[Rfam]
RNA sequence: GGGUGUCCGCCUUCGCGGGCAGGUUGACGCGCAGGUCGGGCCGCCGCG
Numbered sequence: 001g002g003g004u005g006u007c008c009g010c011c012u013u014c015g016c017g018g019g020c021a022g023g024u025u026g027a028c029g030c031g032c033a034g035g036u037c038g039g040g041c042c043g044c045c046g047c048g
Stems, first nucleotide, its partner, number of pairs: 005020006030048003034045003